[Rfam]
RNA sequence: CAAAUCUUCUCGGGGUGCUGUGACUUGAUACAGGUCAUGGCUGAGACCAUAUUGGAACCCGCUGUACCUGAUCAGGUUAGUACCUGCGUAGGAAAAAAGAUUGGACUGUGC
Dot-bracket structure: .....(((.(((((.(((((((((((.....))))))))))......((...)))..)))).....((((..((((......))))..))))..).)))............
The family of this 111-nucleotide RNA sequence from Dasania phycosphaerae is "TPP riboswitch aptamer (THI element)". NCBI's taxonomy places the organism under Bacteria, Gammaproteobacteria, Cellvibrionales, Spongiibacteraceae, Dasania. The match comes from Rfam's covariance-model search (65 bits).